[Rfam]
RNA sequence: CGAGUAAGUCAGAUGGUCGCAUGUCUGAUGGCAUGAGGAAAGUCCGAGCUCCAUAGGGCAGGAUGCUGGGUAAUACCCAGUGGGGGCGACCCCAAGGAUAGUGCAACAGAAAUAUACCGCCUGUCUUUAUGACAGGUAAGGGUGGAAAGGUGAGGUAAGAGCUCACCAGCAACUAGGCGACUAGUUGGCUCUGUAAACCCCAUCCGGAGCAAGACCAAGUUAGGGACAUAAAAGGUGGCGGCCCGUCACUGUCCCGUAUGGUAGGUCGCUUGAGCCUAUUGGCAACAAUAGGCCUAGAUAGAUGACCAUUUUGAUACAGAACUCGGCUUACAGACUUGCUCGUUAC
Numbered sequence: 001c002g003a004g005u006a007a008g009u010c011a012g013a014u015g016g017u018c019g020c021a022u023g024u025c026u027g028a029u030g031g032c033a034u035g036a037g038g039a040a041a042g043u044c045c046g047a048g049c050u051c052c053a054u055a056g057g058g059c060a061g062g063a064u065g066c067u068g069g070g071u072a073a074u075a076c077c078c079a080g081u082g083g084g085g086g087c088g089a090c091c092c093c094a095a096g097g098a099u100a101g102u103g104c105a106a107c108a109g110a111a112a113u114a115u116a117c118c119g120c121c122u123g124u125c126u127u128u129a130u131g132a133c134a135g136g137u138a139a140g141g142g143u144g145g146a147a148a149g150g151u152g153a154g155g156u157a158a159g160a161g162c163u164c165a166c167c168a169g170c171a172a173c174u175a176g177g178c179g180a181c182u183a184g185u186u187g188g189c190u191c192u193g194u195a196a197a198c199c200c201c202a203u204c205c206g207g208a209g210c211a212a213g214a215c216c217a218a219g220u221u222a223g224g225g226a227c228a229u230a231a232a233a234g235g236u237g238g239c240g241g242c243c244c245g246u247c248a249c250u251g252u253c254c255c256g257u258a259u260g261g262u263a264g265g266u267c268g269c270u271u272g273a274g275c276c277u278a279u280u281g282g283c284a285a286c287a288a289u290a291g292g293c294c295u296a297g298a299u300a301g302a303u304g305a306c307c308a309u310u311u312u313g314a315u316a317c318a319g320a321a322c323u324c325g326g327c328u329u330a331c332a333g334a335c336u337u338g339c340u341c342g343u344u345a346c
Stems, first nucleotide, its partner, number of pairs: 001342010012310007020035006040329003044326005049209004056244004061205005066080005081095001082093004096200002101198002103194003117141002119137007149167006169189001170187007213267004223255006235249005274293008
Bacterial RNase P class A: a 346-nucleotide RNA from Caldisalinibacter kiritimatiensis. The match comes from Rfam's covariance-model search (307 bits). The organism belongs to Caldisalinibacter, within Bacteria. Rfam classes the family as a ribozyme. The base pairs follow the family's consensus structure, which is taken from published work.